[Rfam]
RNA: Guanidine-I riboswitch aptamer
Nucleotides: 101
Base pairs, nucleotide, nucleotide: 007055008054009053010052012050015045016044020042021041022039023036024035025034026033027032057073058072059071060070061069076096078099082094083093084092
Number, partner (000 for none) and nucleotide at each position: 001000u002000c003000a004000a005000a006000g007055g008054a009053c010052a011000u012050c013000u014000a015045g016044g017000g018000u019000u020042c021041c022039g023036g024035c025034u026033g027032c028000a029000a030000a031000a032027g033026c034025a035024g036023u037000g038000u039022c040000u041021g042020g043000u044016c045015c046000g047000a048000g049000a050012g051000u052010u053009g054008u055007c056000a057073a058072c059071c060070u061069c062000u063000a064000u065000u066000u067000a068000u069061g070060a071059g072058g073057u074000c075000a076096c077000a078099c079000g080000g081000c082094g083093g084092g085000a086000c087000a088000a089000a090000a091000g092084c093083c094082c095000g096076g097000g098000a099078g100000a101000u